[Rfam]
RNA: ZMP/ZTP riboswitch aptamer (pfl RNA motif)
Organism: Ornithinimicrobium humiphilum
RNA sequence: CUGGCCCCACACGACUGGCGCGGGUGGGACACCACCGGGGAGUGACGAUCGUGGGCAUCGCCCGCCUGGGUGCCCAUC
Numbered sequence: 001c002u003g004g005c006c007c008c009a010c011a012c013g014a015c016u017g018g019c020g021c022g023g024g025u026g027g028g029a030c031a032c033c034a035c036c037g038g039g040g041a042g043u044g045a046c047g048a049u050c051g052u053g054g055g056c057a058u059c060g061c062c063c064g065c066c067u068g069g070g071u072g073c074c075c076a077u078c
Stems, first nucleotide, its partner, number of pairs: 004050001007047001010044003015039002017066004024035004055073005